RNA sequence: AGGAUACUGAGUAUAUGGGGAUGAAUAUCUUACAUUCAACGACAAGAAUGCGAGGAAAAAAAAAUGGGGGAUGAUUUCCCCCAUUUGAUGUUUAAC
Numbered sequence: 001a002g003g004a005u006a007c008u009g010a011g012u013a014u015a016u017g018g019g020g021a022u023g024a025a026u027a028u029c030u031u032a033c034a035u036u037c038a039a040c041g042a043c044a045a046g047a048a049u050g051c052g053a054g055g056a057a058a059a060a061a062a063a064a065u066g067g068g069g070g071a072u073g074a075u076u077u078c079c080c081c082c083a084u085u086u087g088a089u090g091u092u093u094a095a096c
Stems, first nucleotide, its partner, number of pairs: 008038001010036003016032005062086010

Rfam assigns this 96-nucleotide RNA sequence from Chimaeribacter arupi to the family "sraA". A search with the family's covariance model found it, with a score of 80 bits. On this family, see Argaman et al., Curr Biol 2001: "Novel small RNA-encoding genes in the intergenic regions of Escherichia coli". Taxonomically the source falls in Chimaeribacter (Bacteria, Pseudomonadota, Gammaproteobacteria, Enterobacterales). Rfam classes the family as a small RNA. The family's consensus secondary structure was predicted with RNAalifold.